The record is an 84-nucleotide RNA sequence, which matches "skipping-rope RNA" in Rfam. Rfam's curators put it in the seed alignment. The family's consensus secondary structure is taken from published work. It is annotated as a small RNA.
[Rfam]
RNA sequence: UGAAUCAGAGGACAGAACGGGCAGCUGUCGCCGGAUGGAUUUAAUCCUGAUUAGGAGAUGUGGGAAUGUCACCCCACCUAUUCA
Numbered sequence: 001u002g003a004a005u006c007a008g009a010g011g012a013c014a015g016a017a018c019g020g021g022c023a024g025c026u027g028u029c030g031c032c033g034g035a036u037g038g039a040u041u042u043a044a045u046c047c048u049g050a051u052u053a054g055g056a057g058a059u060g061u062g063g064g065a066a067u068g069u070c071a072c073c074c075c076a077c078c079u080a081u082u083c084a
Stems, first nucleotide, its partner, number of pairs: 001084005007079002011029005020070004031055001033047004060077005